Source information: The record is a 71-nucleotide RNA from Patiria miniata, which matches "mir-375 microRNA precursor family" in Rfam. On this family, see Chen et al., Genes Dev 2005: "The developmental miRNA profiles of zebrafish as determined by small RNA cloning".
[Rfam]
RNA sequence: UUUCGCGCGCGCCCGACGUGCAAAACCUGAACAAAUUAACGGGUUGUUUUGUUCGUUCGGCUCGCGUCAAA
Numbered sequence: 001u002u003u004c005g006c007g008c009g010c011g012c013c014c015g016a017c018g019u020g021c022a023a024a025a026c027c028u029g030a031a032c033a034a035a036u037u038a039a040c041g042g043g044u045u046g047u048u049u050u051g052u053u054c055g056u057u058c059g060g061c062u063c064g065c066g067u068c069a070a071a
Base pairs, nucleotide, nucleotide: 001071002070003069005067006066007065008064009063011061012060013059017055018054020052021051022050023049025047026046